This 395-nucleotide sequence from Bifidobacterium bombi belongs to the Rfam family "transfer-messenger RNA". The match comes from Rfam's covariance-model search (151 bits).
RNA sequence: GGGGCUGAUCGGUUUCGACGGUGACCUGUUCGUCGCAGGGAAGCGUGCCGAGGAUGUAGAGUCCACUCGUGAUGACCUCUACAAACAAUUAAGUGCUAAAUCUAACCGCACUGAGCUCGUACUCGCUGCCUGAGCGUUAAGCUAGGAUUAACCAGCGGGCUACGGCUCCGCCCGCUCCCUCUCGUCUUCGGGGGGAUGUCGGACGUCAUUAGAGGACUUGCCUGAGCUGCUGUGCUGCAGGGCGGCUUGGGGACUUUGACUGCGGAUAUGCUCGCCAUCCAUUGUUCGCGACACGGAUGGGGGCAGAAAAACUGCCAUAAGGCCAGCGGACUACGCACGUAGAAUUCUGAGGGUGCGGUCAUCGGACCGGGGUUCAAUUCCCCGCAGCUCCACAA
Numbered sequence: 001g002g003g004g005c006u007g008a009u010c011g012g013u014u015u016c017g018a019c020g021g022u023g024a025c026c027u028g029u030u031c032g033u034c035g036c037a038g039g040g041a042a043g044c045g046u047g048c049c050g051a052g053g054a055u056g057u058a059g060a061g062u063c064c065a066c067u068c069g070u071g072a073u074g075a076c077c078u079c080u081a082c083a084a085a086c087a088a089u090u091a092a093g094u095g096c097u098a099a100a101u102c103u104a105a106c107c108g109c110a111c112u113g114a115g116c117u118c119g120u121a122c123u124c125g126c127u128g129c130c131u132g133a134g135c136g137u138u139a140a141g142c143u144a145g146g147a148u149u150a151a152c153c154a155g156c157g158g159g160c161u162a163c164g165g166c167u168c169c170g171c172c173c174g175c176u177c178c179c180u181c182u183c184g185u186c187u188u189c190g191g192g193g194g195g196a197u198g199u200c201g202g203a204c205g206u207c208a209u210u211a212g213a214g215g216a217c218u219u220g221c222c223u224g225a226g227c228u229g230c231u232g233u234g235c236u237g238c239a240g241g242g243c244g245g246c247u248u249g250g251g252g253a254c255u256u257u258g259a260c261u262g263c264g265g266a267u268a269u270g271c272u273c274g275c276c277a278u279c280c281a282u283u284g285u286u287c288g289c290g291a292c293a294c295g296g297a298u299g300g301g302g303g304c305a306g307a308a309a310a311a312c313u314g315c316c317a318u319a320a321g322g323c324c325a326g327c328g329g330a331c332u333a334c335g336c337a338c339g340u341a342g343a344a345u346u347c348u349g350a351g352g353g354u355g356c357g358g359u360c361a362u363c364g365g366a367c368c369g370g371g372g373u374u375c376a377a378u379u380c381c382c383c384g385c386a387g388c389u390c391c392a393c394a395a
Stems, first nucleotide, its partner, number of pairs: 001391007019364008031353001033351001038348004044339005049069004055083007169205002172202003178193004184217006221251009235265004269305005275300004280295001282293001284331004368384005
It is annotated as a non-coding RNA gene. Clan: tRNA clan.